A member of the RNA family "Fungal signal recognition particle RNA" from Dendryphion nanum, 268 nucleotides long. The family has 50 seed sequences and 748 matches in Rfam 15.1. Pairs were carried over by alignment from the consensus structure, which is taken from published work. The family is grouped with related families in Rfam's "SRP clan". By type it is a non-coding RNA gene.

RNA sequence: UACCUGUAACGGGUCUUUGUCAGAAGGUGCACCGUAUAAUCCACACGGCUCAAUCCUUGUAAUGCCUUAGCCGAGAGCCCAGUUCGAGUCCGAUGGUGUCCGUUUCCCACUCAUUUAGGUAACUAAUGAUGCUGGGCGGACCUAAGCAAUGAAUACUACUGUCCAGGGAAGAAAUUCUGCAAACGCGUAUUCACCACUGGACGGCGGCGCUGGAAUACUCUUGUUAGGGUUGGACGGGGUUGUGUGGGCUGGUGUAUCAACUGACUUU
Numbered sequence: 001u002a003c004c005u006g007u008a009a010c011g012g013g014u015c016u017u018u019g020u021c022a023g024a025a026g027g028u029g030c031a032c033c034g035u036a037u038a039a040u041c042c043a044c045a046c047g048g049c050u051c052a053a054u055c056c057u058u059g060u061a062a063u064g065c066c067u068u069a070g071c072c073g074a075g076a077g078c079c080c081a082g083u084u085c086g087a088g089u090c091c092g093a094u095g096g097u098g099u100c101c102g103u104u105u106c107c108c109a110c111u112c113a114u115u116u117a118g119g120u121a122a123c124u125a126a127u128g129a130u131g132c133u134g135g136g137c138g139g140a141c142c143u144a145a146g147c148a149a150u151g152a153a154u155a156c157u158a159c160u161g162u163c164c165a166g167g168g169a170a171g172a173a174a175u176u177c178u179g180c181a182a183a184c185g186c187g188u189a190u191u192c193a194c195c196a197c198u199g200g201a202c203g204g205c206g207g208c209g210c211u212g213g214a215a216u217a218c219u220c221u222u223g224u225u226a227g228g229g230u231u232g233g234a235c236g237g238g239g240u241u242g243u244g245u246g247g248g249c250u251g252g253u254g255u256a257u258c259a260a261c262u263g264a265c266u267u268u
Base pairs, nucleotide, nucleotide: 002014003013004012019265020264021263022262023261027257028256029255030254032252033251034250041247042246043245044244045243046242047241048240049239050238051237054234067228070225072223073222074221075220076219077218079213080212081211082210083209084207085206086205088202089201090200091199092198094196095195096194098141100139101138102137104136106135107134108131109130111129112128113127114126115125117124118123142146150193151192152191153190154189155188156187160185161184162183168177169176170175